[Rfam]
Rfam assigns this 190-nucleotide RNA sequence from Paenibacillus aquistagni to the family "Lysine riboswitch aptamer". Rfam links the family to the GO term lysine biosynthetic process. The family's consensus secondary structure is taken from published work. Taxonomically the source falls in Paenibacillus (Bacteria, Bacillati, Bacillota, Bacilli).

RNA sequence: UGAUGAGGUAGAGGUUGCGAUCGUUAAGAGUAAUGCUCCGGAGGCUGGAAGAGCCUAAGAUGGGGCAAGAAAGGAACGACCGCCGAAGUCCGCGCUAUCGCUUCCGAUAGACGGGUUGGGGCUGUUGCCGAAAGGCGCAGCACUGUCAUGCAAGGAUUACCCGUCCUAUGCAUGAUGCGCUAUCUUUUUU
Numbered sequence: 001u002g003a004u005g006a007g008g009u010a011g012a013g014g015u016u017g018c019g020a021u022c023g024u025u026a027a028g029a030g031u032a033a034u035g036c037u038c039c040g041g042a043g044g045c046u047g048g049a050a051g052a053g054c055c056u057a058a059g060a061u062g063g064g065g066c067a068a069g070a071a072a073g074g075a076a077c078g079a080c081c082g083c084c085g086a087a088g089u090c091c092g093c094g095c096u097a098u099c100g101c102u103u104c105c106g107a108u109a110g111a112c113g114g115g116u117u118g119g120g121g122c123u124g125u126u127g128c129c130g131a132a133a134g135g136c137g138c139a140g141c142a143c144u145g146u147c148a149u150g151c152a153a154g155g156a157u158u159a160c161c162c163g164u165c166c167u168a169u170g171c172a173u174g175a176u177g178c179g180c181u182a183u184c185u186u187u188u189u190u
Stems, first nucleotide, its partner, number of pairs: 006185006017083003021079005034067007087117006095110005118144002121141004126137004146175007